RNA sequence: AGAUAGACAACACGCGCGUGAGGGAUAGAAGCGGUUAUCCUUUUUUGCCUUCGACCAACGGGAGUCCGCACGGAUCGGCAAAAAAGAUAGUAGCGGAAAGCCCGACCCGUA
Numbered sequence: 001a002g003a004u005a006g007a008c009a010a011c012a013c014g015c016g017c018g019u020g021a022g023g024g025a026u027a028g029a030a031g032c033g034g035u036u037a038u039c040c041u042u043u044u045u046u047g048c049c050u051u052c053g054a055c056c057a058a059c060g061g062g063a064g065u066c067c068g069c070a071c072g073g074a075u076c077g078g079c080a081a082a083a084a085a086g087a088u089a090g091u092a093g094c095g096g097a098a099a100g101c102c103c104g105a106c107c108c109g110u111a
Base pairs, nucleotide, nucleotide: 022103023102024101026099031094032093036089037088038087039086042084043083044082045081046080047079048078049077
RNA: Flavo-1 RNA
Organism: Cryomorpha ignava